[Rfam]
About this RNA: The record is a 177-nucleotide RNA sequence from Photobacterium damselae, which matches "Lysine riboswitch aptamer" in Rfam. The family has 47 seed sequences and 3,224 matches in Rfam 15.1. A search with the family's covariance model found it, with a score of 75 bits.
RNA sequence: CGAAUCAGAAGAGGAGCGUUAACCAGGUAGUCAAUGUGCGGAGCCCUAAACUCCAAUGUACCUUGACCAGGGGGUUAACGCUGAGACAAAACGCGUUUUGGGACGCGAUUGUCGGCCUAGAAAGUUGAUUCUUUCGGGCCGUCACCUGUGCGGCACAGGUGGAGAGCUUCUGGUAGA
Numbered sequence: 001c002g003a004a005u006c007a008g009a010a011g012a013g014g015a016g017c018g019u020u021a022a023c024c025a026g027g028u029a030g031u032c033a034a035u036g037u038g039c040g041g042a043g044c045c046c047u048a049a050a051c052u053c054c055a056a057u058g059u060a061c062c063u064u065g066a067c068c069a070g071g072g073g074g075u076u077a078a079c080g081c082u083g084a085g086a087c088a089a090a091a092c093g094c095g096u097u098u099u100g101g102g103a104c105g106c107g108a109u110u111g112u113c114g115g116c117c118u119a120g121a122a123a124g125u126u127g128a129u130u131c132u133u134u135c136g137g138g139c140c141g142u143c144a145c146c147u148g149u150g151c152g153g154c155a156c157a158g159g160u161g162g163a164g165a166g167c168u169u170c171u172g173g174u175a176g177a
Base pairs, nucleotide, nucleotide: 006172007171008170009169010168011167016081017080018079019078020077021076022075023074024073030067031066032065033064034063036061037060085113086112087111088110089109092107093106094105095104096103114140115139116138117137120135121134122133123132124131142162143161144160145159146158147157148156
Riboswitches are metabolite binding domains within certain messenger RNAs that serve as precision sensors for their corresponding targets. Allosteric rearrangement of mRNA structure is mediated by ligand binding, and this results in modulation of gene expression. This family includes riboswitches that sense lysine in a number of genes involved in lysine metabolism, including lysC. For this family Rfam cites "An mRNA structure in bacteria that controls gene expression by binding lysine" (Sudarsan et al., Genes Dev, 2003).